This 130-nucleotide RNA from Brenthis ino belongs to the Rfam family "Small nucleolar RNA psi18S-841/snoR66". Rfam's curators write: psi18S-841 is a member of the H/ACA class of snoRNA. This family is responsible for guiding the modification of uridine 841 in Drosophila 18S rRNA to pseudouridine. Rfam links the family to the GO terms RNA processing and nucleolus. The organism belongs to Brenthis, within Eukaryota. Rfam classes the family as an H/ACA-box small nucleolar RNA. The match comes from Rfam's covariance-model search (52 bits).
RNA sequence: UGCAAGGGCACUCUGUGUUAUACAUUAUUGAUAUGUUAUUCACAAUUUGUUACCUUGCUAUACUAAAUCUACUAUACCCUAUUCUGAAUAACUGUAACUUGUUAUUUAGUCAUAAUAGCAGAGACAUUUU
Numbered sequence: 001u002g003c004a005a006g007g008g009c010a011c012u013c014u015g016u017g018u019u020a021u022a023c024a025u026u027a028u029u030g031a032u033a034u035g036u037u038a039u040u041c042a043c044a045a046u047u048u049g050u051u052a053c054c055u056u057g058c059u060a061u062a063c064u065a066a067a068u069c070u071a072c073u074a075u076a077c078c079c080u081a082u083u084c085u086g087a088a089u090a091a092c093u094g095u096a097a098c099u100u101g102u103u104a105u106u107u108a109g110u111c112a113u114a115a116u117a118g119c120a121g122a123g124a125c126a127u128u129u130u
Stems, first nucleotide, its partner, number of pairs: 002058006010050002014044003017040001019038002022036002065128002069123002073118001075117002082112001085108005091102002